RNA sequence: GUGACACUCAAAUAUGGUAGCACUUUCCAUGCUGAUCUCAGAAGAGUGCUUCCACAUUUGAGUGCCAC
Dot-bracket structure: ....((((((((..(((.(((((((((.............))).)))))).)))..))))))))....
Numbered sequence: 001g002u003g004a005c006a007c008u009c010a011a012a013u014a015u016g017g018u019a020g021c022a023c024u025u026u027c028c029a030u031g032c033u034g035a036u037c038u039c040a041g042a043a044g045a046g047u048g049c050u051u052c053c054a055c056a057u058u059u060g061a062g063u064g065c066c067a068c
Stems, first nucleotide, its partner, number of pairs: 005064008015054003019050006025043003
Shown here is a 68-nucleotide RNA sequence from Marmota monax, a member of the family "mir-290 microRNA precursor family". Rfam links the family to the GO terms RISC complex and miRNA-mediated post-transcriptional gene silencing. The literature on the family includes a 2004 paper in Dev Biol by Suh et al., "Human embryonic stem cells express a unique set of microRNAs". It scores 59 bits against the family's covariance model. The family has 31 seed sequences and 565 matches in Rfam 15.1. The base pairs follow the family's consensus structure, which was predicted with RNAalifold. Clan: mir-290 clan.